[Rfam]
RNA: c-di-GMP-I riboswitch aptamer
Organism: Shewanella sp. SNU WT4
RNA sequence: CAUUGAAAAAGGCAAACCAGUUGAAAGGCUGGGACGCAAAACCACCGGUCUAAGGGGCGUUUGUACCUAUGAUAGCGGGGAUGCCAUU
Numbered sequence: 001c002a003u004u005g006a007a008a009a010a011g012g013c014a015a016a017c018c019a020g021u022u023g024a025a026a027g028g029c030u031g032g033g034a035c036g037c038a039a040a041a042c043c044a045c046c047g048g049u050c051u052a053a054g055g056g057g058c059g060u061u062u063g064u065a066c067c068u069a070u071g072a073u074a075g076c077g078g079g080g081a082u083g084c085c086a087u088u
Base pairs, nucleotide, nucleotide: 012037013036017032018031019030020029021028022027040082042080043079045078046077047076048073049072050071055067056066